The record is a 600-nucleotide part of an RNA from Bugula neritina, which matches "Eukaryotic large subunit ribosomal RNA" in Rfam. Its family is annotated with structural constituent of ribosome and ribosome in the Gene Ontology.
RNA sequence: UACAGCGGGGAAAGAAGACCCUGUUGAGCUUGACUCUAGUUUGACAUUGUGAAGAGACACGAAAGGUGUAGCAUAGGUGGGAGGCGUCCUCGCGGCGUCGGCAAUGAAAUACCACUACUUCCGUAGUUUCUUUACUUAUUCAGUUAGACGGAAGGCGAGCGGGCCUCGGCCCGCUCGGCGUUCUGGUGUUGUAAGCCGAAGCGGCACCACGUGUGUCGACGGCGAUCCGCUCUGAAGACAGUGUCAGGCGGGGAGUUUGACUGGGGCGGUACAUCUGUCAAAAGGUAACGCAGGUGUCCCAAGGUGAGCUCAGCGAGGACAGAAACCUCGCGUAGAGCAAAAGGGCAAAAGCUCACUUGAUUUUGAUUUCCAGUACGAAUACAGACCGCGAAAGCGGGGCCUAUCGAUCCUUACGACUGCCCAGAGCUUGGGGCGUGAGGUGUCAGAAAAGUUACCUUGUGGCAGCCAAGCGUUCAUAGCGACGUUGCGAAUGCAUCAUUGCGAAGCAGAAUUCGCCAAGCGUUGGAUUGUUCACCCACUAAUAGGGAACGUGAGCUGGGUUUAGACCGUCGUGAGACAGGUUAGUUUUACCCUACUGUA
Numbered sequence: 001u002a003c004a005g006c007g008g009g010g011a012a013a014g015a016a017g018a019c020c021c022u023g024u025u026g027a028g029c030u031u032g033a034c035u036c037u038a039g040u041u042u043g044a045c046a047u048u049g050u051g052a053a054g055a056g057a058c059a060c061g062a063a064a065g066g067u068g069u070a071g072c073a074u075a076g077g078u079g080g081g082a083g084g085c086g087u088c089c090u091c092g093c094g095g096c097g098u099c100g101g102c103a104a105u106g107a108a109a110u111a112c113c114a115c116u117a118c119u120u121c122c123g124u125a126g127u128u129u130c131u132u133u134a135c136u137u138a139u140u141c142a143g144u145u146a147g148a149c150g151g152a153a154g155g156c157g158a159g160c161g162g163g164c165c166u167c168g169g170c171c172c173g174c175u176c177g178g179c180g181u182u183c184u185g186g187u188g189u190u191g192u193a194a195g196c197c198g199a200a201g202c203g204g205c206a207c208c209a210c211g212u213g214u215g216u217c218g219a220c221g222g223c224g225a226u227c228c229g230c231u232c233u234g235a236a237g238a239c240a241g242u243g244u245c246a247g248g249c250g251g252g253g254a255g256u257u258u259g260a261c262u263g264g265g266g267c268g269g270u271a272c273a274u275c276u277g278u279c280a281a282a283a284g285g286u287a288a289c290g291c292a293g294g295u296g297u298c299c300c301a302a303g304g305u306g307a308g309c310u311c312a313g314c315g316a317g318g319a320c321a322g323a324a325a326c327c328u329c330g331c332g333u334a335g336a337g338c339a340a341a342a343g344g345g346c347a348a349a350a351g352c353u354c355a356c357u358u359g360a361u362u363u364u365g366a367u368u369u370c371c372a373g374u375a376c377g378a379a380u381a382c383a384g385a386c387c388g389c390g391a392a393a394g395c396g397g398g399g400c401c402u403a404u405c406g407a408u409c410c411u412u413a414c415g416a417c418u419g420c421c422c423a424g425a426g427c428u429u430g431g432g433g434c435g436u437g438a439g440g441u442g443u444c445a446g447a448a449a450a451g452u453u454a455c456c457u458u459g460u461g462g463c464a465g466c467c468a469a470g471c472g473u474u475c476a477u478a479g480c481g482a483c484g485u486u487g488c489g490a491a492u493g494c495a496u497c498a499u500u501g502c503g504a505a506g507c508a509g510a511a512u513u514c515g516c517c518a519a520g521c522g523u524u525g526g527a528u529u530g531u532u533c534a535c536c537c538a539c540u541a542a543u544a545g546g547g548a549a550c551g552u553g554a555g556c557u558g559g560g561u562u563u564a565g566a567c568c569g570u571c572g573u574g575a576g577a578c579a580g581g582u583u584a585g586u587u588u589u590a591c592c593c594u595a596c597u598g599u600a
Base pairs, nucleotide, nucleotide: 001600002599003598004597005596008594009593010592012589013588020461022459023458026456027453028452029451030450031449033256034255035254036253040248041247042246043245044244045243046242049135050134051133052132053131054130055129056128057127058126059124060123061122063120064119065118076116077115078114079113080112083099084098085097086096087095139236140235141234142233143232149229150228151227152226157176158175159174160173161172162171163170164169195223196222197221198220259272260270261269262268273295274294275293276292277291278290298399299398304356305355306354307353308352309351310336311335313331314330315329316328317327318326337346338345361385362384363383366380367379368378369377387396388395389394410439411438412437413436414435415434420432421431422430463487464486465485466484470480471479488559489557492554494551497522501516502515503514504513505512524538525537526536528534565583566582567581568580569578570577571576